[Rfam]
The family of this 80-nucleotide RNA sequence from Lachnotalea sp. AF33-28 is "ZMP/ZTP riboswitch aptamer (pfl RNA motif)". Pairs were carried over by alignment from the consensus structure, which is taken from published work.

RNA sequence: GCGAAUGCAUACAACUGGCGGAUAAGUGGAGUACCACAGGGAGUAUGUAGGAGAGAAAGCCGACCGCCUGGGUACCCAUC
Number, nucleotide and partner (000 for none) at each position: 001g000002c000003g000004a000005a000006u049007g048008c047009a046010u045011a044012c043013a000014a000015c040016u039017g068018g067019c066020g065021g064022a000023u000024a000025a000026g037027u036028g035029g034030a000031g000032u000033a000034c029035c028036a027037c026038a000039g016040g015041g000042a000043g012044u011045a010046u009047g008048u007049a006050g000051g000052a000053g000054a000055g000056a000057a000058a000059g073060c072061c071062g000063a000064c021065c020066g019067c018068c017069u000070g000071g061072g060073u059074a000075c000076c000077c000078a000079u000080c000